[Rfam]
RNA sequence: GAUCAAACAAUUGACGUUAGAGUUUGCGAAUAACUACUGAAUCGGAAUACUAGCUAUGUCCUAGGAUCCAUAUUCACUGCGACGUGAACUC
Numbered sequence: 001g002a003u004c005a006a007a008c009a010a011u012u013g014a015c016g017u018u019a020g021a022g023u024u025u026g027c028g029a030a031u032a033a034c035u036a037c038u039g040a041a042u043c044g045g046a047a048u049a050c051u052a053g054c055u056a057u058g059u060c061c062u063a064g065g066a067u068c069c070a071u072a073u074u075c076a077c078u079g080c081g082a083c084g085u086g087a088a089c090u091c
Stems, first nucleotide, its partner, number of pairs: 021090008038076005044069003050064004
The family of this 91-nucleotide RNA from Lactobacillus rodentium is "Lacto-usp RNA". It scores 78 bits against the family's covariance model. NCBI's taxonomy places the organism under Bacteria, Bacillati, Bacilli, Lactobacillales, Lactobacillus. By type it is a small RNA.